RNA sequence: CAAUAGCAAGUACGCGCGUUAGCGAUUGAAACGGCAUCCUUUUUAUGGUAAACUCGUUUCAGUGUUUAUCAUAAAAAAUAAAAACACCUAUAAAUAAGAACAGAUGCUGAAAUAAAAUCAGCAUAAAAAGAUAUAGUGGAAAGCGCGACCCUUG
Numbered sequence: 001c002a003a004u005a006g007c008a009a010g011u012a013c014g015c016g017c018g019u020u021a022g023c024g025a026u027u028g029a030a031a032c033g034g035c036a037u038c039c040u041u042u043u044u045a046u047g048g049u050a051a052a053c054u055c056g057u058u059u060c061a062g063u064g065u066u067u068a069u070c071a072u073a074a075a076a077a078a079u080a081a082a083a084a085c086a087c088c089u090a091u092a093a094a095u096a097a098g099a100a101c102a103g104a105u106g107c108u109g110a111a112a113u114a115a116a117a118u119c120a121g122c123a124u125a126a127a128a129a130g131a132u133a134u135a136g137u138g139g140a141a142a143g144c145g146c147g148a149c150c151c152u153u154g
Stems, first nucleotide, its partner, number of pairs: 022146003026142002031137002036132003042127006049120001
The record is a 154-nucleotide RNA from Tenacibaculum todarodis, which matches "Flavo-1 RNA" in Rfam. It scores 48 bits against the family's covariance model. Taxonomically the source falls in Tenacibaculum (Bacteria, Pseudomonadati, Flavobacteriales, Flavobacteriaceae).